Description:
The record is a 103-nucleotide RNA from Pseudomonas syringae, which matches "Pseudomonas rnk leader" in Rfam. The source organism's lineage runs through Bacteria, Pseudomonadaceae, Pseudomonas, Pseudomonas syringae group genomosp. 1 and Pseudomonas syringae pv. syringae. For this family Rfam cites "Premature terminator analysis sheds light on a hidden world of bacterial transcriptional attenuation" (Naville and Gautheret, Genome Biol, 2010).

[Rfam]
RNA sequence: CCGCGUCGGGUUGUGUAUUUACUGCGCUGUGUUAGUGUCAGGCCUUGCCUCUGCAGACAAGAGGCUCGUCAAACCCCGCCAAUUGGUGGGGUUUUGUUUUAUU
Numbered sequence: 001c002c003g004c005g006u007c008g009g010g011u012u013g014u015g016u017a018u019u020u021a022c023u024g025c026g027c028u029g030u031g032u033u034a035g036u037g038u039c040a041g042g043c044c045u046u047g048c049c050u051c052u053g054c055a056g057a058c059a060a061g062a063g064g065c066u067c068g069u070c071a072a073a074c075c076c077c078g079c080c081a082a083u084u085g086g087u088g089g090g091g092u093u094u095u096g097u098u099u100u101a102u103u
Base pairs, nucleotide, nucleotide: 003051005049019035020034021033023031024030071094072093073092074091075090076089077088078087079086080085